Shown here is a 78-nucleotide RNA from Propionigenium maris, a member of the family "Fluoride riboswitch aptamer (crcB RNA motif)". For this family Rfam cites "Widespread genetic switches and toxicity resistance proteins for fluoride" (Baker et al., Science, 2012). Rfam links the family to the GO terms positive regulation of gene expression and response to fluoride.
[Rfam]
RNA sequence: AAAUAAAUGGGGGAUGAGGCUCUCCCUGGGGUAACCCUAAAUGCUUUUGACGAAAAAGAUGAUGGCUUCUGCAGGAUU
Numbered sequence: 001a002a003a004u005a006a007a008u009g010g011g012g013g014a015u016g017a018g019g020c021u022c023u024c025c026c027u028g029g030g031g032u033a034a035c036c037c038u039a040a041a042u043g044c045u046u047u048u049g050a051c052g053a054a055a056a057a058g059a060u061g062a063u064g065g066c067u068u069c070u071g072c073a074g075g076a077u078u
Stems, first nucleotide, its partner, number of pairs: 010025004016069006044058005